[Rfam]
RNA sequence: UUCGUCUCACGUGACUGGCGAAACACCGGAGCCCACGGUUCCGGCACAAGGUGGAUAUCCACCGGGGAACGUGAGAUUCUCUAGCCGUUCGCCUGGGCAGCCACA
Numbered sequence: 001u002u003c004g005u006c007u008c009a010c011g012u013g014a015c016u017g018g019c020g021a022a023a024c025a026c027c028g029g030a031g032c033c034c035a036c037g038g039u040u041c042c043g044g045c046a047c048a049a050g051g052u053g054g055a056u057a058u059c060c061a062c063c064g065g066g067g068a069a070c071g072u073g074a075g076a077u078u079c080u081c082u083a084g085c086c087g088u089u090c091g092c093c094u095g096g097g098c099a100g101c102c103a104c105a
Stems, first nucleotide, its partner, number of pairs: 004077009015066002017093005051062004082100001084098003